[Rfam]
RNA: MIR1520 microRNA precursor family
Organism: Glycine soja
RNA sequence: UUCUUAUUAGAUGAUGACGAUCAUGUAUCAUGUUCUGAUUGGUUAAUAAAAAUAAUCAUAUAUUUUAUUUUUCAUGGAAUUUAUAUUCAAUUAUAACAUAACACAUGACCGUCAUCAUUC
Numbered sequence: 001u002u003c004u005u006a007u008u009a010g011a012u013g014a015u016g017a018c019g020a021u022c023a024u025g026u027a028u029c030a031u032g033u034u035c036u037g038a039u040u041g042g043u044u045a046a047u048a049a050a051a052a053u054a055a056u057c058a059u060a061u062a063u064u065u066u067a068u069u070u071u072u073c074a075u076g077g078a079a080u081u082u083a084u085a086u087u088c089a090a091u092u093a094u095a096a097c098a099u100a101a102c103a104c105a106u107g108a109c110c111g112u113c114a115u116c117a118u119u120c
Base pairs, nucleotide, nucleotide: 021108022107023106025104026103030099031098033096034095036093038091039090040089041088042087